[Rfam]
RNA sequence: CGAUGUUCUCAGGGCGGGGCGAAAUUCCCCACCGGCGGUAUGCGGGCUGCGACCCGUAAGCCCGCGAGCGGCCUCGGUUAAUGGGGUGUCAGCAGAUCUGGUGAAAAGCCAGAGCCGACGGUUACAGUCCGGAUGAAAGAGAACGUGU
Numbered sequence: 001c002g003a004u005g006u007u008c009u010c011a012g013g014g015c016g017g018g019g020c021g022a023a024a025u026u027c028c029c030c031a032c033c034g035g036c037g038g039u040a041u042g043c044g045g046g047c048u049g050c051g052a053c054c055c056g057u058a059a060g061c062c063c064g065c066g067a068g069c070g071g072c073c074u075c076g077g078u079u080a081a082u083g084g085g086g087u088g089u090c091a092g093c094a095g096a097u098c099u100g101g102u103g104a105a106a107a108g109c110c111a112g113a114g115c116c117g118a119c120g121g122u123u124a125c126a127g128u129c130c131g132g133a134u135g136a137a138a139g140a141g142a143a144c145g146u147g148u
Base pairs, nucleotide, nucleotide: 003146004145005144006143007142008141009140010139017029018028019027031128032127033117034116035065036064037063038062060115061114068093069092097113098112099111100110101109119131120130121129
FMN riboswitch aptamer (RFN element): a 148-nucleotide RNA sequence from Roseibium sp. RKSG952. Gene Ontology term of the family: FMN binding. NCBI's taxonomy places the organism under Bacteria, Pseudomonadati, Pseudomonadota, Stappiaceae, Roseibium.